[Rfam]
RNA sequence: CCUGUAAAGACAUGCUUCCUUAUAUCCCCAUAUUAAUACAGCACUUAUGGAAUGUAAGGAAGUGUGUGGUUACAGG
Numbered sequence: 001c002c003u004g005u006a007a008a009g010a011c012a013u014g015c016u017u018c019c020u021u022a023u024a025u026c027c028c029c030a031u032a033u034u035a036a037u038a039c040a041g042c043a044c045u046u047a048u049g050g051a052a053u054g055u056a057a058g059g060a061a062g063u064g065u066g067u068g069g070u071u072a073c074a075g076g
Base pairs, nucleotide, nucleotide: 007070010067011066012065013064014063015062016061017060018059019058020057021056022055023054024053025052028050029049030048031047032046

This 76-nucleotide RNA from Cynoglossus semilaevis belongs to the Rfam family "mir-1 microRNA precursor family". It scores 66 bits against the family's covariance model. For this family Rfam cites "An extensive class of small RNAs in Caenorhabditis elegans" (Lee and Ambros, Science, 2001). Gene Ontology terms of the family: miRNA-mediated post-transcriptional gene silencing and RISC complex.